Rfam assigns this 84-nucleotide sequence from Loxodonta africana to the family "Small nucleolar RNA SNORD86".
The match comes from Rfam's covariance-model search (68 bits).
Gene Ontology terms of the family: nucleolus and RNA processing.
From the family's description: U86 belongs to the C/D family of snoRNAs. It is the human orthologue of Xenopus laevis U86 and has no identified RNA target.
Taxonomically the source falls in Loxodonta (Eukaryota, Euteleostomi, Tetrapoda, Elephantidae).
The literature on the family includes a 2001 paper in Biochem Biophys Res Commun by Filippini et al., "U86, a novel snoRNA with an unprecedented gene organization in yeast".
RNA sequence: GAUCGCAGUGAUGGCUGGCCAGGCCCCUGUCCUACAUAGGCCUCUGCUCUGGGGAUGAUGGCCAGUCCUGGUGUCUGAGUGAUU
Numbered sequence: 001g002a003u004c005g006c007a008g009u010g011a012u013g014g015c016u017g018g019c020c021a022g023g024c025c026c027c028u029g030u031c032c033u034a035c036a037u038a039g040g041c042c043u044c045u046g047c048u049c050u051g052g053g054g055a056u057g058a059u060g061g062c063c064a065g066u067c068c069u070g071g072u073g074u075c076u077g078a079g080u081g082a083u084u
Stems, first nucleotide, its partner, number of pairs: 001084006010075003018072006025061002028058001032054002037051002039048003